The record is a 91-nucleotide RNA from Amazona aestiva, which matches "mir-1460 microRNA precursor family" in Rfam. The base pairs follow the family's consensus structure, which was predicted with RNAalifold. Rfam links the family to the GO terms RISC complex and miRNA-mediated post-transcriptional gene silencing. The family has 2 seed sequences and 347 matches in Rfam 15.1.
[Rfam]
RNA sequence: UGUGCUGGAAGACAAUUUAUUGCAGCCUUCUCAGGGUGGCCCCCUGCUCUUUUCACCCGGGAGAAGGUGUAAUAAAUUGCCUGCAGGGAGG
Number, nucleotide and partner (000 for none) at each position: 001u000002g000003u089004g000005c087006u086007g000008g084009a000010a082011g081012a000013c079014a078015a077016u076017u075018u074019a073020u072021u071022g070023c069024a068025g000026c067027c066028u065029u064030c063031u062032c061033a000034g058035g057036g056037u055038g054039g053040c000041c000042c000043c000044c000045u000046g000047c000048u000049c000050u000051u000052u000053u039054c038055a037056c036057c035058c034059g000060g000061g032062a031063g030064a029065a028066g027067g026068u024069g023070u022071a021072a020073u019074a018075a017076a016077u015078u014079g013080c000081c011082u010083g000084c008085a000086g006087g005088g000089a003090g000091g000